RNA sequence: AGAUGUUGGAUGAGUGUGAGGUGUCGGAUUGAGUUCACUCAAUCCGAGCCCCACAUUCAUCAAGGAAAAAA
Numbered sequence: 001a002g003a004u005g006u007u008g009g010a011u012g013a014g015u016g017u018g019a020g021g022u023g024u025c026g027g028a029u030u031g032a033g034u035u036c037a038c039u040c041a042a043u044c045c046g047a048g049c050c051c052c053a054c055a056u057u058c059a060u061c062a063a064g065g066a067a068a069a070a071a
Stems, first nucleotide, its partner, number of pairs: 004066001006064002009061010020050003024047009

This 71-nucleotide RNA from Nicotiana tabacum belongs to the Rfam family "MIR6151 microRNA precursor family". Pairs were carried over by alignment from the consensus structure, which was predicted with RNAalifold. Gene Ontology terms of the family: miRNA-mediated post-transcriptional gene silencing and RISC complex. The organism belongs to Nicotiana, within Eukaryota.